[Rfam]
RNA: U5 spliceosomal RNA
Organism: Nesidiocoris tenuis
RNA sequence: CCCGCGAGCCCUCUCUUCAGUACGAAUAAAUCUUUCGCCUUUUACUAAAGAUUUCCGUGGAGAUGGGCCUCUAAUGAGUCUCUGAAUAUUAAGUAUUCGAAUAUUCGAGUA
Number, nucleotide and partner (000 for none) at each position: 001c000002c000003c078004g000005c076006g075007a000008g000009c000010c067011c066012u065013c000014u063015c062016u061017u060018c059019a058020g000021u000022a000023c000024g000025a000026a000027u000028a054029a053030a052031u051032c050033u049034u048035u047036c000037g000038c000039c000040u000041u000042u000043u000044a000045c000046u000047a035048a034049a033050g032051a031052u030053u029054u028055c000056c000057g000058u019059g018060g017061a016062g015063a014064u000065g012066g011067g010068c000069c000070u000071c000072u000073a000074a000075u006076g005077a000078g003079u000080c000081u000082c000083u000084g000085a000086a000087u000088a000089u000090u000091a000092a000093g000094u111095a110096u109097u108098c107099g106100a105101a000102u000103a000104u000105u100106c099107g098108a097109g096110u095111a094